Description: Mammalian CPEB3 ribozyme: a 77-nucleotide RNA from Alligator mississippiensis. The organism belongs to Alligator, within Eukaryota.
[Rfam]
RNA sequence: CAAUUUUUGUUGCAGGCUAUGGCAGAAGCAUUCAUGCUGCGACCAUGUCAGAUUCCAACAAAUCUGCAAAUUCUGCU
Numbered sequence: 001c002a003a004u005u006u007u008u009g010u011u012g013c014a015g016g017c018u019a020u021g022g023c024a025g026a027a028g029c030a031u032u033c034a035u036g037c038u039g040c041g042a043c044c045a046u047g048u049c050a051g052a053u054u055c056c057a058a059c060a061a062a063u064c065u066g067c068a069a070a071u072u073c074u075g076c077u
Stems, first nucleotide, its partner, number of pairs: 015044002018041001021077007028040003049066006